FMN riboswitch aptamer (RFN element): a 153-nucleotide RNA sequence from Microvirga alba. The match comes from Rfam's covariance-model search (108 bits). Lineage of the source: Bacteria > Alphaproteobacteria > Hyphomicrobiales > Methylobacteriaceae > Microvirga.
[Rfam]
RNA sequence: UGAUGAUCUCAGGGCGGGGUGGAAGUCCCCACCGGCGGUGAAUGGGCGAAUAGGCCAUAAGCCCGCGAGCGCUUCCCGUCUUGGACGGGGAGGUCAGCAGAUUCGGUGCGAAUCCGAAGCCGACGGUCAGAGUCCGGAUGAAAGAGAUCGGUC
Numbered sequence: 001u002g003a004u005g006a007u008c009u010c011a012g013g014g015c016g017g018g019g020u021g022g023a024a025g026u027c028c029c030c031a032c033c034g035g036c037g038g039u040g041a042a043u044g045g046g047c048g049a050a051u052a053g054g055c056c057a058u059a060a061g062c063c064c065g066c067g068a069g070c071g072c073u074u075c076c077c078g079u080c081u082u083g084g085a086c087g088g089g090g091a092g093g094u095c096a097g098c099a100g101a102u103u104c105g106g107u108g109c110g111a112a113u114c115c116g117a118a119g120c121c122g123a124c125g126g127u128c129a130g131a132g133u134c135c136g137g138a139u140g141a142a143a144g145a146g147a148u149c150g151g152u153c
Stems, first nucleotide, its partner, number of pairs: 004150007017029003031133002033122002035066004061120002069098002102118005124136003